Burkholderia sRNA 2: a 168-nucleotide RNA from Paraburkholderia saeva. A search with the family's covariance model found it, with a score of 70 bits. The literature on the family includes a 2017 paper in Microbiology by Ghosh et al., "Identification of novel small RNAs in Burkholderia cenocepacia KC-01 expressed under iron limitation and oxidative stress conditions". It is annotated as a small RNA. Taxonomically the source falls in Paraburkholderia (Bacteria, Betaproteobacteria, Burkholderiales, Burkholderiaceae). From the family's description: Upregulated in response to iron ion depletion.

RNA sequence: AUGAGUGACUGUCCAUCCCAUUCUUUUCGCCGCUGCGCCGCCUUCGAUGGCACCCUCGACGGCAACCUUGACGCCGGUUUCGAUACCGCCGCCGUAGAGGAAGUGAGGCGCCACGCGACGACCGAAGUCGAGCCGCUUGCUCCGUUUGCCGGGGCGGCGGCUUUUUUA
Number, nucleotide and partner (000 for none) at each position: 001a000002u000003g000004a000005g000006u000007g038008a000009c035010u000011g033012u032013c000014c029015a000016u000017c000018c000019c000020a000021u000022u000023c000024u000025u000026u000027u000028c000029g014030c000031c000032g012033c011034u000035g009036c000037g000038c007039c117040g116041c115042c000043u113044u000045c110046g109047a000048u107049g000050g000051c000052a000053c000054c000055c000056u000057c000058g000059a000060c000061g000062g000063c000064a000065a000066c000067c000068u000069u000070g000071a000072c000073g000074c000075c000076g000077g000078u000079u000080u000081c000082g000083a000084u000085a000086c000087c000088g000089c000090c000091g000092c000093c000094g000095u000096a000097g000098a000099g000100g000101a000102a000103g000104u000105g000106a000107g048108g000109c046110g045111c000112c000113a043114c000115g041116c040117g039118a000119c130120g129121a128122c127123c000124g000125a000126a000127g122128u121129c120130g119131a162132g161133c160134c159135g158136c157137u000138u156139g155140c154141u153142c152143c151144g000145u000146u000147u000148g000149c000150c000151g143152g142153g141154g140155c139156g138157g136158c135159g134160g133161c132162u131163u000164u000165u000166u000167u000168a000